[Rfam]
RNA sequence: GUGCAAGUGAUGUAAAUUUAUUUGAUCUGAAUGUUUGUGAUGCAUUCAAAGGAACCACUGAUGCCC
Numbered sequence: 001g002u003g004c005a006a007g008u009g010a011u012g013u014a015a016a017u018u019u020a021u022u023u024g025a026u027c028u029g030a031a032u033g034u035u036u037g038u039g040a041u042g043c044a045u046u047c048a049a050a051g052g053a054a055c056c057a058c059u060g061a062u063g064c065c066c
Stems, first nucleotide, its partner, number of pairs: 001066001003064003
RNA: Small nucleolar RNA SNORD42